[Rfam]
RNA sequence: GCAUGGGUUUGGAUUUAUGGCGGGCCGUUGCCCUGGGCCUCUCACGGUCACAUGCCAGAGCAAAUUGUGGUCCCAAAUCAUCUCCUGGCCUCUGUGCAAAGGUUGUUGGCACUAAGGUGGGUUGCACAGCA
Numbered sequence: 001g002c003a004u005g006g007g008u009u010u011g012g013a014u015u016u017a018u019g020g021c022g023g024g025c026c027g028u029u030g031c032c033c034u035g036g037g038c039c040u041c042u043c044a045c046g047g048u049c050a051c052a053u054g055c056c057a058g059a060g061c062a063a064a065u066u067g068u069g070g071u072c073c074c075a076a077a078u079c080a081u082c083u084c085c086u087g088g089c090c091u092c093u094g095u096g097c098a099a100a101g102g103u104u105g106u107u108g109g110c111a112c113u114a115a116g117g118u119g120g121g122u123u124g125c126a127c128a129g130c131a
Stems, first nucleotide, its partner, number of pairs: 001055004006049001015047002018044003022040003025036002068124006080113001084109002086105006
RNA: Small nucleolar RNA SNORA42/SNORA80 family